[Rfam]
RNA sequence: CCGGAAACAACAUCCUGAUGCUGCCUGAGUGUGUCUCCUAAACUCCAGCAUCAGUGAUUUUGUUGCCAG
Numbered sequence: 001c002c003g004g005a006a007a008c009a010a011c012a013u014c015c016u017g018a019u020g021c022u023g024c025c026u027g028a029g030u031g032u033g034u035c036u037c038c039u040a041a042a043c044u045c046c047a048g049c050a051u052c053a054g055u056g057a058u059u060u061u062g063u064u065g066c067c068a069g
Base pairs, nucleotide, nucleotide: 006064007063008062009061010060012058013057014056015054016053017052018051019050020049021048022047023046

mir-338 microRNA precursor family: a 69-nucleotide RNA sequence from Chanos chanos. The family's consensus secondary structure was predicted with RNAalifold. The organism belongs to Chanos, within Eukaryota. It scores 81 bits against the family's covariance model. A reference for the family is Stark et al. (2010), "Characterization of the Melanoma miRNAome by Deep Sequencing", PLoS One.